[Rfam]
RNA sequence: GUUAAUCUUCAGGGCGGAGUGCAAGUCUCCACCGGCAGUAAAGUCUGCGAGCGUAAGCUGAAUCGGUGAAAUUCCGAUACCGACAGUAUAGUCUGGAUGAAAGAAGAGUUUU
Numbered sequence: 001g002u003u004a005a006u007c008u009u010c011a012g013g014g015c016g017g018a019g020u021g022c023a024a025g026u027c028u029c030c031a032c033c034g035g036c037a038g039u040a041a042a043g044u045c046u047g048c049g050a051g052c053g054u055a056a057g058c059u060g061a062a063u064c065g066g067u068g069a070a071a072u073u074c075c076g077a078u079a080c081c082g083a084c085a086g087u088a089u090a091g092u093c094u095g096g097a098u099g100a101a102a103g104a105a106g107a108g109u110u111u112u
Stems, first nucleotide, its partner, number of pairs: 004109001006107005017029003031092002033082002035048004043080002051058002062078005084095003
Record summary
The family of this 112-nucleotide RNA from Anaerococcus prevotii is "FMN riboswitch aptamer (RFN element)". Pairs were carried over by alignment from the consensus structure, which is taken from published work. Lineage of the source: Bacteria > Tissierellia > Tissierellales > Peptoniphilaceae > Anaerococcus prevotii.